[Rfam]
RNA sequence: AUUCGUCAAAAAUAAAUGCUUCAUAUAAUCGUGGGAAUAUGGCUCACGAGUCUCUACCGGAACACCGUAAAUGUUCCGCCUAUGAUCGAUAGAUGUAUAUCU
Numbered sequence: 001a002u003u004c005g006u007c008a009a010a011a012a013u014a015a016a017u018g019c020u021u022c023a024u025a026u027a028a029u030c031g032u033g034g035g036a037a038u039a040u041g042g043c044u045c046a047c048g049a050g051u052c053u054c055u056a057c058c059g060g061a062a063c064a065c066c067g068u069a070a071a072u073g074u075u076c077c078g079c080c081u082a083u084g085a086u087c088g089a090u091a092g093a094u095g096u097a098u099a100u101c102u
Stems, first nucleotide, its partner, number of pairs: 021085005029049007058078007